A member of the RNA family "MIR5565 microRNA precursor family" from Sorghum bicolor, 111 nucleotides long. NCBI's taxonomy places the organism under Eukaryota, Viridiplantae, Spermatophyta, Liliopsida, Sorghum.
[Rfam]
RNA sequence: GCAGUCAGAUUUUGUAUCAAUCCACAUGUGUUGGAAUGGAUUGGAAUAAAACUUGAACUAAAUUCUACCCUAAUCCACACCAACACAUACGAAUUGAUACAAAAUCUGACU
Numbered sequence: 001g002c003a004g005u006c007a008g009a010u011u012u013u014g015u016a017u018c019a020a021u022c023c024a025c026a027u028g029u030g031u032u033g034g035a036a037u038g039g040a041u042u043g044g045a046a047u048a049a050a051a052c053u054u055g056a057a058c059u060a061a062a063u064u065c066u067a068c069c070c071u072a073a074u075c076c077a078c079a080c081c082a083a084c085a086c087a088u089a090c091g092a093a094u095u096g097a098u099a100c101a102a103a104a105u106c107u108g109a110c111u
Stems, first nucleotide, its partner, number of pairs: 004110008013101003017097005023091001026088008037077008047067002